[Rfam]
RNA sequence: GAUGCUGCUCGAAAGGAAUGACAUGGUUCGAAGGAACUCUCUGAGAAGAGAUAGUACGGGAACCAUUAACCAGGGUAGCAUCUUACGUUUUGAAAAACGG
Numbered sequence: 001g002a003u004g005c006u007g008c009u010c011g012a013a014a015g016g017a018a019u020g021a022c023a024u025g026g027u028u029c030g031a032a033g034g035a036a037c038u039c040u041c042u043g044a045g046a047a048g049a050g051a052u053a054g055u056a057c058g059g060g061a062a063c064c065a066u067u068a069a070c071c072a073g074g075g076u077a078g079c080a081u082c083u084u085a086c087g088u089u090u091u092g093a094a095a096a097a098c099g100g
Stems, first nucleotide, its partner, number of pairs: 001082010015071002023066007033057001038051005086099003
Shown here is a 100-nucleotide part of an RNA from Candidatus Methanohalarchaeum thermophilum, a member of the family "Archaeal large subunit ribosomal RNA". NCBI's taxonomy places the organism under Archaea, Methanobacteriati, Methanobacteriota, Methanonatronarchaeaceae, Candidatus Methanohalarchaeum.